[Rfam]
RNA: U12 minor spliceosomal RNA
RNA sequence: AUGCCUUAAACUUAGGAAUAAGGAAAACCAUGAUUCGGAGUGACACCUGAAUGCUCAUUGCUAAUGUGAGAUGAAUUUUUGAGCUGGUAAAAGUGGCCCCUCAGGUGACCUGCCUACUUUGCUGGAUGCCUGGGAAUCGCAAUCUGUCUG
Numbered sequence: 001a002u003g004c005c006u007u008a009a010a011c012u013u014a015g016g017a018a019u020a021a022g023g024a025a026a027a028c029c030a031u032g033a034u035u036c037g038g039a040g041u042g043a044c045a046c047c048u049g050a051a052u053g054c055u056c057a058u059u060g061c062u063a064a065u066g067u068g069a070g071a072u073g074a075a076u077u078u079u080u081g082a083g084c085u086g087g088u089a090a091a092a093g094u095g096g097c098c099c100c101u102c103a104g105g106u107g108a109c110c111u112g113c114c115u116a117c118u119u120u121g122c123u124g125g126a127u128g129c130c131u132g133g134g135a136a137u138c139g140c141a142a143u144c145u146g147u148c149u150g
Stems, first nucleotide, its partner, number of pairs: 004023005033052006054070005084150001086148003091145001093143002096140002100134002103131005109125002112122002